[Rfam]
RNA sequence: AAAAACACGUGUUGUACGUCGCUCUGGAUAAGAGCGUCUGCCAAAUGCCUAUAA
Numbered sequence: 001a002a003a004a005a006c007a008c009g010u011g012u013u014g015u016a017c018g019u020c021g022c023u024c025u026g027g028a029u030a031a032g033a034g035c036g037u038c039u040g041c042c043a044a045a046u047g048c049c050u051a052u053a054a
Stems, first nucleotide, its partner, number of pairs: 013043001014041003020036006
The family of this 54-nucleotide RNA from Anguilla anguilla is "UnaL2 LINE 3' element". The source organism's lineage runs through Eukaryota, Metazoa, Neopterygii, Elopocephalai and Anguilla. The family's consensus secondary structure is taken from published work. Rfam links the family to the GO term transposition, RNA-mediated. By type it is a cis-regulatory element.